[Rfam]
RNA sequence: CCCAAAAUAGCCACUUGUUAUUUUCUAAUUGGUCGUUCUAAGUGUGUUAAAAUUUUGUAAGAACCAAUUAGAAAAUGACAAGUGGCUAUUUUGAA
Dot-bracket structure: ..((((((((((((((((((((((((((((((...((((.(................).))))))))))))))))))))))))))))))))))..
Numbered sequence: 001c002c003c004a005a006a007a008u009a010g011c012c013a014c015u016u017g018u019u020a021u022u023u024u025c026u027a028a029u030u031g032g033u034c035g036u037u038c039u040a041a042g043u044g045u046g047u048u049a050a051a052a053u054u055u056u057g058u059a060a061g062a063a064c065c066a067a068u069u070a071g072a073a074a075a076u077g078a079c080a081a082g083u084g085g086c087u088a089u090u091u092u093g094a095a
Stems, first nucleotide, its partner, number of pairs: 003093030036063004041058001

Shown here is a 95-nucleotide RNA from Prunus yedoensis, a member of the family "MIR6288 microRNA precursor family". The source organism's lineage runs through Eukaryota, Streptophytina, Gunneridae, Pentapetalae and Prunus yedoensis. Gene Ontology terms of the family: miRNA-mediated post-transcriptional gene silencing and RISC complex.